[Rfam]
RNA sequence: GAGCAUUUUGGGAGCUUUACCCAAGGGCGGUAGCGUG
Dot-bracket structure: .......(((((.......))))).............

Rfam assigns this 37-nucleotide RNA from Vibrio xiamenensis to the family "JUMPstart RNA".
The source organism's lineage runs through Bacteria, Gammaproteobacteria, Vibrionales, Vibrionaceae and Vibrio.
A search with the family's covariance model found it, with a score of 43 bits.